[Rfam]
The record is a 193-nucleotide RNA sequence from Nicotiana tabacum, which matches "MIR159 microRNA precursor family" in Rfam.
RNA sequence: GAUGGUACAAGAGAGCUUCCUUUAGUCCACUCAUAGGUUGACGAAGGGUUUUGAAUUAUCUGCCGACUCAUUCAUUCAAACACAGUAGGAAAUCUUUGUGUUAAUACUACUGUGAAUGUGUGAAUGAUGCGGGAGAUAAAUUCAUCCUUCUUUAUCUUUGCUUGGACUGAAGGGAGCUCCCUUUUACCUUUGU
Numbered sequence: 001g002a003u004g005g006u007a008c009a010a011g012a013g014a015g016c017u018u019c020c021u022u023u024a025g026u027c028c029a030c031u032c033a034u035a036g037g038u039u040g041a042c043g044a045a046g047g048g049u050u051u052u053g054a055a056u057u058a059u060c061u062g063c064c065g066a067c068u069c070a071u072u073c074a075u076u077c078a079a080a081c082a083c084a085g086u087a088g089g090a091a092a093u094c095u096u097u098g099u100g101u102u103a104a105u106a107c108u109a110c111u112g113u114g115a116a117u118g119u120g121u122g123a124a125u126g127a128u129g130c131g132g133g134a135g136a137u138a139a140a141u142u143c144a145u146c147c148u149u150c151u152u153u154a155u156c157u158u159u160g161c162u163u164g165g166a167c168u169g170a171a172g173g174g175a176g177c178u179c180c181c182u183u184u185u186a187c188c189u190u191u192g193u
Base pairs, nucleotide, nucleotide: 013179014178015177016176017175018174019173020172023169024168025167026166027165028164029163036156060135061134063132064131065130069126070125071124072123077118
Dot-bracket structure: ............((((((((..(((((((......(.......................((.(((...((((....(........................................)....))))...))).))....................)......)))))))..))))))))..............